[Rfam]
RNA sequence: CUCGAGUUGUCUCUCAUGUCUAGACCAUUUGUGAGAAGGGAUUUACUGUUUGCACCAUCCACCUCACCAAUCUCUAAAUCUGCCAUUAGUAUUAUGCUCAUUUAAGAAAAUUAGCAUCUAGAAAAUAGGUACAUAAAGUGCAUGAAUGACUUUUGCAGAUGCUGUACACAUAAUUUUUUUUUAUAGAAUCAGUUCAUGCUGGUUCUCCAAAUCAUAUACAGUUUUGGACAUAUAUUUUUCCUAAGAGAUGUCAAACGUCUAUAUGGAUUGUUAGAAGGUUCAUGAUAUCUUAGAAUUUGUAGCUUGCACUACUUAGCUACAUUAGUUCACUUGUUAAAAGUUGGGAAGUUGGGGAGGUGCUGGGUUAUUCCCUUCUCAUCGAUGGUCUAGAUGUGCGAGGUGACUCUCAUAGUGU
Number, nucleotide and partner (000 for none) at each position: 001c414002u000003c412004g406005a405006g404007u403008u402009g401010u400011c399012u398013c397014u000015c395016a394017u393018g392019u391020c390021u389022a388023g387024a386025c385026c384027a383028u382029u381030u000031g379032u378033g377034a376035g375036a374037a373038g372039g371040g370041a369042u000043u000044u000045a000046c000047u000048g000049u000050u000051u000052g360053c359054a358055c357056c356057a000058u000059c000060c000061a000062c000063c000064u000065c000066a000067c000068c351069a350070a349071u000072c000073u346074c345075u344076a000077a000078a000079u000080c000081u000082g000083c000084c000085a000086u000087u000088a000089g000090u000091a000092u000093u000094a000095u000096g000097c000098u000099c000100a000101u000102u000103u000104a000105a000106g000107a000108a000109a000110a000111u000112u000113a000114g000115c000116a000117u000118c000119u000120a000121g000122a000123a000124a000125a000126u000127a000128g000129g000130u000131a000132c000133a000134u000135a000136a000137a000138g000139u000140g000141c000142a000143u000144g000145a000146a000147u000148g000149a000150c000151u000152u000153u000154u000155g000156c000157a000158g000159a000160u000161g000162c000163u000164g000165u000166a000167c000168a000169c000170a000171u000172a000173a000174u000175u000176u000177u000178u000179u000180u000181u000182u000183a000184u000185a000186g000187a000188a000189u000190c000191a000192g000193u000194u000195c000196a000197u000198g000199c000200u000201g000202g000203u000204u000205c000206u000207c000208c000209a000210a000211a000212u000213c000214a000215u000216a000217u000218a000219c000220a000221g000222u000223u000224u000225u000226g000227g000228a000229c000230a000231u000232a000233u000234a000235u000236u000237u000238u000239u000240c000241c000242u000243a000244a000245g000246a000247g000248a000249u000250g000251u000252c000253a000254a000255a000256c000257g000258u000259c000260u000261a000262u000263a000264u000265g000266g000267a000268u000269u000270g000271u000272u000273a000274g000275a000276a000277g000278g000279u000280u000281c000282a000283u000284g000285a000286u000287a000288u000289c000290u000291u000292a000293g000294a000295a000296u000297u000298u000299g000300u000301a000302g000303c000304u000305u000306g000307c000308a000309c000310u000311a000312c000313u000314u000315a000316g000317c000318u000319a000320c000321a000322u000323u000324a000325g000326u000327u000328c000329a000330c000331u000332u000333g000334u000335u000336a000337a000338a000339a000340g000341u000342u000343g000344g075345g074346a073347a000348g000349u070350u069351g068352g000353g000354g000355a000356g056357g055358u054359g053360c052361u000362g000363g000364g000365u000366u000367a000368u000369u041370c040371c039372c038373u037374u036375c035376u034377c033378a032379u031380c000381g029382a028383u027384g026385g025386u024387c023388u022389a021390g020391a019392u018393g017394u016395g015396c000397g013398a012399g011400g010401u009402g008403a007404c006405u005406c004407u000408c000409a000410u000411a000412g003413u000414g001415u000

Shown here is a 415-nucleotide RNA from Brassica napus, a member of the family "MIR824 microRNA precursor family".
The source organism's lineage runs through Eukaryota, Embryophyta, Gunneridae, malvids and Brassica.
The match comes from Rfam's covariance-model search (184 bits).